[Rfam]
RNA sequence: GUCCGUGAACCGUGAGGAAACGUCUCCCCUUGCGGAUCCGGCAAAUAAACAACAAAAGGAG
Number, nucleotide and partner (000 for none) at each position: 001g000002u000003c041004c040005g039006u000007g038008a037009a000010c035011c034012g033013u032014g031015a030016g029017g028018a000019a000020a000021c000022g000023u000024c000025u000026c000027c000028c017029c016030u015031u014032g013033c012034g011035g010036a000037u008038c007039c005040g004041g003042c000043a000044a000045a000046u000047a000048a000049a000050c000051a000052a000053c000054a000055a000056a000057a000058g000059g000060a000061g000
This 61-nucleotide RNA sequence from Geotalea daltonii belongs to the Rfam family "L20-Deltaproteobacteria ribosomal protein leader".
Rfam classes the family as a cis-regulatory leader.
Lineage of the source: Bacteria > Thermodesulfobacteriota > Desulfuromonadia > Geobacterales > Geotalea daltonii.
The literature on the family includes a 2020 paper in BMC Microbiol by Eckert and Weinberg, "Discovery of 20 novel ribosomal leader candidates in bacteria and archaea".